This 31-nucleotide RNA from Varanus komodoensis belongs to the Rfam family "Iron response element II". A reference for the family is Koeller et al. (1989), "A cytosolic protein binds to structural elements within the iron regulatory region of the transferrin receptor mRNA", Proc Natl Acad Sci U S A. Rfam's curators write: IRE, TFRC, SLC40A1, SDHB, SLC11A2, CDC42BPA, ACO2, ALAS2_H.SAPIENS, CDC14A, EPAS1, ALAS2, qoxD, Hao1, NDUFS1, transferrin, Aconitate. Gene Ontology term of the family: response to iron ion. The source organism's lineage runs through Eukaryota, Sarcopterygii, Sauropsida, Anguimorpha and Varanus.

[Rfam]
RNA sequence: UAGUCGUCAGCAGCAGUGCCUGCUAGGAUUG
Dot-bracket structure: (((((.(.((((((...).)))))).)))))